[Rfam]
Rfam assigns this 35-nucleotide RNA from Centaurea solstitialis to the family "Plastid psbT antisense RNA". It scores 52 bits against the family's covariance model. The family's consensus secondary structure was predicted with LocARNA.

RNA sequence: GUAGUUGGAUCCCCAAGUUUUUGGAAUGCUCCAAA
Numbered sequence: 001g002u003a004g005u006u007g008g009a010u011c012c013c014c015a016a017g018u019u020u021u022u023g024g025a026a027u028g029c030u031c032c033a034a035a
Stems, first nucleotide, its partner, number of pairs: 003018001005016004020035006

Plastid-psbT-asRNA is an antisense RNA (asRNA) motif reported in Plastids It has been shown that psbT expression is controlled by two antisense RNAs originated from psbN transcription by the nuclear-encoded polymerase (NEP), in which the short antisense RNA hybridizes to psbT CDS, thereby stabilizing psbT transcript while blocking its translation during photooxidative stress.